A member of the RNA family "TPP riboswitch aptamer (THI element)" from Prochlorothrix hollandica, 100 nucleotides long. Rfam's curators write: Vitamin B(1) in its active form thiamin pyrophosphate (TPP) is an essential coenzyme that is synthesised by coupling of pyrimidine and thiazole moieties in bacteria. Its family is annotated with thiamine pyrophosphate binding in the Gene Ontology. The organism belongs to Prochlorothrix hollandica, within Bacteria.
[Rfam]
RNA sequence: ACAGUUGGCUGGGGGUGCCCAUCACAUCAUUGGGCUGAGAUCAUACCCUUAGAACCUGAGACUGGGUCAUACCAGCGGAGGGAAGCGUCACCAUUUCGCC
Number, nucleotide and partner (000 for none) at each position: 001a000002c000003a000004g000005u000006u000007g000008g086009c085010u084011g049012g048013g047014g046015g000016u043017g035018c034019c033020c032021a031022u000023c000024a000025c000026a000027u000028c000029a000030u000031u021032g020033g019034g018035c017036u000037g000038a000039g000040a000041u000042c000043a016044u000045a000046c014047c013048c012049u011050u000051a000052g000053a000054a000055c081056c080057u079058g000059a000060g000061a000062c075063u074064g073065g072066g000067u000068c000069a000070u000071a000072c065073c064074a063075g062076c000077g000078g000079a057080g056081g055082g000083a000084a010085g009086c008087g000088u000089c000090a000091c000092c000093a000094u000095u000096u000097c000098g000099c000100c000